[Rfam]
RNA: raiA RNA
Organism: Clostridium bornimense
RNA sequence: UUAAAUUAGGUCUGUGGUUGAAAGUCGAUGCCAGUCGCAGGCGAAACGAUCCACGUAAGCUAAGCAAAGUCUUAGUGAUCAUGGUGCGGCUUAGAAGUGAGUCCUACCGCAAUAGAGUGCGAGAGGGUUAGUAGUGAGAGGGUAAUUCCGGGUAGCGAAAGCUCCAGUGGGCGAGUGUGGGGUCAAAGAUCAGGUCAGCUAGUUUUU
Numbered sequence: 001u002u003a004a005a006u007u008a009g010g011u012c013u014g015u016g017g018u019u020g021a022a023a024g025u026c027g028a029u030g031c032c033a034g035u036c037g038c039a040g041g042c043g044a045a046a047c048g049a050u051c052c053a054c055g056u057a058a059g060c061u062a063a064g065c066a067a068a069g070u071c072u073u074a075g076u077g078a079u080c081a082u083g084g085u086g087c088g089g090c091u092u093a094g095a096a097g098u099g100a101g102u103c104c105u106a107c108c109g110c111a112a113u114a115g116a117g118u119g120c121g122a123g124a125g126g127g128u129u130a131g132u133a134g135u136g137a138g139a140g141g142g143u144a145a146u147u148c149c150g151g152g153u154a155g156c157g158a159a160a161g162c163u164c165c166a167g168u169g170g171g172c173g174a175g176u177g178u179g180g181g182g183u184c185a186a187a188g189a190u191c192a193g194g195u196c197a198g199c200u201a202g203u204u205u206u207u
Stems, first nucleotide, its partner, number of pairs: 003205007012198003015192005028178003031041001033091007050084002055079001058076001060075005082185001103171005108121004125164004134156002140149003